[Rfam]
RNA sequence: AAAGGAAAUGCCGAAAACCUUCAAAAGAGUAGGCA
Numbered sequence: 001a002a003a004g005g006a007a008a009u010g011c012c013g014a015a016a017a018c019c020u021u022c023a024a025a026a027g028a029g030u031a032g033g034c035a
Stems, first nucleotide, its partner, number of pairs: 002021004010034003
DUF805b RNA: a 35-nucleotide RNA sequence. It is annotated as a cis-regulatory element. Rfam's curators put it in the seed alignment. The family is grouped with related families in Rfam's "DUF805 clan".